[Rfam]
RNA sequence: UUCACCUUUAAAGGCAGUCCAGAGAGGCUGAAAAGGUAUUUGUGAAAUGUUUGAAAAGCUCGCAUGAAAACUCACUAUUUAUGUAUACUUGUACAUAAAUAUGGAUAAGCAGCUUAUUUAAACAUGCCCAUAAACACAACUAUCAACCUCUUAAGCGAAUGCUUAAGAGGUUUUUUUAC
Numbered sequence: 001u002u003c004a005c006c007u008u009u010a011a012a013g014g015c016a017g018u019c020c021a022g023a024g025a026g027g028c029u030g031a032a033a034a035g036g037u038a039u040u041u042g043u044g045a046a047a048u049g050u051u052u053g054a055a056a057a058g059c060u061c062g063c064a065u066g067a068a069a070a071c072u073c074a075c076u077a078u079u080u081a082u083g084u085a086u087a088c089u090u091g092u093a094c095a096u097a098a099a100u101a102u103g104g105a106u107a108a109g110c111a112g113c114u115u116a117u118u119u120a121a122a123c124a125u126g127c128c129c130a131u132a133a134a135c136a137c138a139a140c141u142a143u144c145a146a147c148c149u150c151u152u153a154a155g156c157g158a159a160u161g162c163u164u165a166a167g168a169g170g171u172u173u174u175u176u177u178a179c
Stems, first nucleotide, its partner, number of pairs: 004037006015030005073104001076101011145172012

Background
The record is a 179-nucleotide RNA from Ureibacillus manganicus, which matches "PyrR binding site" in Rfam. By type it is a cis-regulatory element. Lineage of the source: Bacteria > Bacillati > Caryophanaceae > Ureibacillus > Ureibacillus manganicus.